[Rfam]
RNA sequence: UCCUUUAAAUAGGACACGUGUAUAAAUGUUAUACGCUCCCCUUACAAAUAUGUGAGAGGGAGCGUUUUU
Numbered sequence: 001u002c003c004u005u006u007a008a009a010u011a012g013g014a015c016a017c018g019u020g021u022a023u024a025a026a027u028g029u030u031a032u033a034c035g036c037u038c039c040c041c042u043u044a045c046a047a048a049u050a051u052g053u054g055a056g057a058g059g060g061a062g063c064g065u066u067u068u069u
Stems, first nucleotide, its partner, number of pairs: 001014004033065008041056006